The record is a 125-nucleotide RNA from Peromyscus maniculatus, which matches "Small Cajal body specific RNA 4" in Rfam. The family's RNA type in Rfam is small Cajal body RNA. On this family, see Darzacq et al., EMBO J 2002: "Cajal body-specific small nuclear RNAs: a novel class of 2'-O-methylation and pseudouridylation guide RNAs". Pairs were carried over by alignment from the consensus structure, which was predicted with RNAfold. Taxonomically the source falls in Peromyscus maniculatus (Eukaryota, Chordata, Theria, Peromyscus). scaRNAs are a specific class of small nuclear RNAs which localise to the Cajal bodies and guide the modification of RNA polymerase II transcribed spliceosomal RNAs U1, U2, U4, U5 and U12. The match comes from Rfam's covariance-model search (82 bits).
RNA sequence: ACUAGAAGAUCAAGAAGGCCGUCUGAUGAAGCAGGACUUUGCUGAUACACUCCUAGAAAAAGAGGUGGAGAGAACAGAGCCCUUAGUGGAGCAAACCACAGGGUUGACUCUACUACCCAACAUUU
Numbered sequence: 001a002c003u004a005g006a007a008g009a010u011c012a013a014g015a016a017g018g019c020c021g022u023c024u025g026a027u028g029a030a031g032c033a034g035g036a037c038u039u040u041g042c043u044g045a046u047a048c049a050c051u052c053c054u055a056g057a058a059a060a061a062g063a064g065g066u067g068g069a070g071a072g073a074a075c076a077g078a079g080c081c082c083u084u085a086g087u088g089g090a091g092c093a094a095a096c097c098a099c100a101g102g103g104u105u106g107a108c109u110c111u112a113c114u115a116c117c118c119a120a121c122a123u124u125u
Base pairs, nucleotide, nucleotide: 002056003055008052009051017043018042019041021037022036023035024034064117065116066115073109075106076105079104080103081102082101083100087098088097089096